L31-Firmicutes ribosomal protein leader: a 33-nucleotide RNA sequence.
On this family, see Eckert and Weinberg, BMC Microbiol 2020: "Discovery of 20 novel ribosomal leader candidates in bacteria and archaea".
The family is grouped with related families in Rfam's "Ribosomal Protein L31 Leader clan".
It is one of the family's seed sequences.

[Rfam]
Nucleotides: 033
Base pairs, nucleotide, nucleotide: 001024002023003022004021005020008017009016010015
Number, partner (000 for none) and nucleotide at each position: 001024c002023u003022c004021u005020g006000u007000u008017u009016c010015g011000c012000u013000a014000a015010u016009g017008a018000u019000u020005c021004a022003g023002g024001g025000c026000a027000g028000a029000a030000a031000g032000a033000g